[Rfam]
RNA sequence: AACCCCUUCCCCUUGCGGGGAAAAGGUAGGGAUCAAC
Numbered sequence: 001a002a003c004c005c006c007u008u009c010c011c012c013u014u015g016c017g018g019g020g021a022a023a024a025g026g027u028a029g030g031g032a033u034c035a036a037c
Stems, first nucleotide, its partner, number of pairs: 005026002008021005
RNA: CRISPR RNA direct repeat element